Record summary
The record is a 103-nucleotide sequence from Gordonia asplenii, which matches "Glycine riboswitch aptamer" in Rfam. Clan: Glycine riboswitch clan. Pairs were carried over by alignment from the consensus structure. Rfam 15.1 lists 9,425 matches to the family in 5,228 species. It scores 55 bits against the family's covariance model. This family represents the bacterial glycine riboswitch.

RNA sequence: CGCUACGCAGCGGGAGAGCGUCGGCCCGUAACUCGGGACCCGGCCGCCGAAGGAGCAACACCUCUCCGUCAAUCUCUCAGGCACCCUGGACCGCGGCGUUGAC
Numbered sequence: 001c002g003c004u005a006c007g008c009a010g011c012g013g014g015a016g017a018g019c020g021u022c023g024g025c026c027c028g029u030a031a032c033u034c035g036g037g038a039c040c041c042g043g044c045c046g047c048c049g050a051a052g053g054a055g056c057a058a059c060a061c062c063u064c065u066c067c068g069u070c071a072a073u074c075u076c077u078c079a080g081g082c083a084c085c086c087u088g089g090a091c092c093g094c095g096g097c098g099u100u101g102a103c
Base pairs, nucleotide, nucleotide: 006098007097008096010094011093012092013091020044021043022042023041046082047081048080049078050077053076054075055074060069061068